[Rfam]
RNA sequence: GGAAUAUAAAAAUCCGUCUCCUAACUUUUAACUAAAAAAACUAAGAACCGGCUCUUAAAUAGUUUUUUUAAGAGCCGGUUUUUAAGAGCCGGUUUUUAAGAGCCGGUUUUUUAGUUUUUCUAGUUAAAAGUUAAGAGACGGGUUCUUAUAUUCC
Numbered sequence: 001g002g003a004a005u006a007u008a009a010a011a012a013u014c015c016g017u018c019u020c021c022u023a024a025c026u027u028u029u030a031a032c033u034a035a036a037a038a039a040a041c042u043a044a045g046a047a048c049c050g051g052c053u054c055u056u057a058a059a060u061a062g063u064u065u066u067u068u069u070a071a072g073a074g075c076c077g078g079u080u081u082u083u084a085a086g087a088g089c090c091g092g093u094u095u096u097u098a099a100g101a102g103c104c105g106g107u108u109u110u111u112u113a114g115u116u117u118u119u120c121u122a123g124u125u126a127a128a129a130g131u132u133a134a135g136a137g138a139c140g141g142g143u144u145c146u147u148a149u150a151u152u153c154c
Stems, first nucleotide, its partner, number of pairs: 001154009011144010022133013036119004041114007

The record is a 154-nucleotide RNA sequence from Brassica carinata, which matches "MIR9563 microRNA precursor family" in Rfam.
A search with the family's covariance model found it, with a score of 108 bits.